The record is a 103-nucleotide RNA from Exophiala spinifera, which matches "tRNA" in Rfam.
The family's consensus secondary structure is taken from published work.
Transfer RNA (tRNA) molecules are approximately 80 nucleotides in length.
Rfam classes the family as a transfer RNA.
RNA sequence: GACACGAUGGCCGAGUGGUUAAGGCGUUAGACUUGAAUUAGCUUAAAAUACUUCAUGCCAUCUAAUGGGUUCGCCCGCGUAGGUUCAAAUCCUGCUCGUGUCG
Numbered sequence: 001g002a003c004a005c006g007a008u009g010g011c012c013g014a015g016u017g018g019u020u021a022a023g024g025c026g027u028u029a030g031a032c033u034u035g036a037a038u039u040a041g042c043u044u045a046a047a048a049u050a051c052u053u054c055a056u057g058c059c060a061u062c063u064a065a066u067g068g069g070u071u072c073g074c075c076c077g078c079g080u081a082g083g084u085u086c087a088a089a090u091c092c093u094g095c096u097c098g099u100g101u102c103g
Stems, first nucleotide, its partner, number of pairs: 001102007010025003027065005079095005